[Rfam]
Plant signal recognition particle RNA: a 305-nucleotide sequence from Zingiber officinale. On this family, see Wild et al., Curr Opin Struct Biol 2002: "Towards the structure of the mammalian signal recognition particle". Pairs were carried over by alignment from the consensus structure, which is taken from published work. Rfam classes the family as a non-coding RNA gene.
RNA sequence: GCCGAGCUGGGUUGCGCCAGCUUGUAACCCAAGCGGGGGCUGUGAAUGAUUGGAAUUAAUUAUUUGGAUUUAAAGGCGUGGAUCAUCUCUGCGAUUGCCGGUCUGUCCGUUCCAAGUUGAUGGUGGGCCGGAAGAAUUGGGCGAAGGCCCGAUUCAACUGGUUCUUAAAGAGGAGGGCACUGGGCCAGGCUGGUUUCACAGAGCAGUCAUUUCCCAUCCUCCUUCAACAGUGGAAGGAUAACGGGCCUGUGUGCAAUUGGCCCACAAUUUCCCUCUGGAUCCAACCAAUUCUAACUAAUCAUUUU
Numbered sequence: 001g002c003c004g005a006g007c008u009g010g011g012u013u014g015c016g017c018c019a020g021c022u023u024g025u026a027a028c029c030c031a032a033g034c035g036g037g038g039g040c041u042g043u044g045a046a047u048g049a050u051u052g053g054a055a056u057u058a059a060u061u062a063u064u065u066g067g068a069u070u071u072a073a074a075g076g077c078g079u080g081g082a083u084c085a086u087c088u089c090u091g092c093g094a095u096u097g098c099c100g101g102u103c104u105g106u107c108c109g110u111u112c113c114a115a116g117u118u119g120a121u122g123g124u125g126g127g128c129c130g131g132a133a134g135a136a137u138u139g140g141g142c143g144a145a146g147g148c149c150c151g152a153u154u155c156a157a158c159u160g161g162u163u164c165u166u167a168a169a170g171a172g173g174a175g176g177g178c179a180c181u182g183g184g185c186c187a188g189g190c191u192g193g194u195u196u197c198a199c200a201g202a203g204c205a206g207u208c209a210u211u212u213c214c215c216a217u218c219c220u221c222c223u224u225c226a227a228c229a230g231u232g233g234a235a236g237g238a239u240a241a242c243g244g245g246c247c248u249g250u251g252u253g254c255a256a257u258u259g260g261c262c263c264a265c266a267a268u269u270u271c272c273c274u275c276u277g278g279a280u281c282c283a284a285c286c287a288a289u290u291c292u293a294a295c296u297a298a299u300c301a302u303u304u305u
Stems, first nucleotide, its partner, number of pairs: 001040003004023007028037003044304010059289003063284002066281002069279004074274003078270001080263002083260003089253001092251002098249001100247007107237002110235005116228005122222002125164007134155009165170001172218002175214003183208003190201003